A member of the RNA family "Rhizobiales sRNA Atu_C8" from Devosia crocina, 120 nucleotides long. NCBI's taxonomy places the organism under Bacteria, Pseudomonadati, Hyphomicrobiales, Devosiaceae, Devosia. By type it is a small RNA.
[Rfam]
RNA sequence: GAAGAUCGGGAACAGCUUUGUCGUAGUAGGUCGGCGCAUGGGCACGGCAGCAUAGCUGCCAGGCGAAAGCACCCAUGCGCGGUAAAUUCAGCCCCAAGCGGGGCUUUUUUAUUGCCUGUU
Numbered sequence: 001g002a003a004g005a006u007c008g009g010g011a012a013c014a015g016c017u018u019u020g021u022c023g024u025a026g027u028a029g030g031u032c033g034g035c036g037c038a039u040g041g042g043c044a045c046g047g048c049a050g051c052a053u054a055g056c057u058g059c060c061a062g063g064c065g066a067a068a069g070c071a072c073c074c075a076u077g078c079g080c081g082g083u084a085a086a087u088u089c090a091g092c093c094c095c096a097a098g099c100g101g102g103g104c105u106u107u108u109u110u111a112u113u114g115c116c117u118g119u120u
Stems, first nucleotide, its partner, number of pairs: 029116003034080009046060005063070002086105001091104005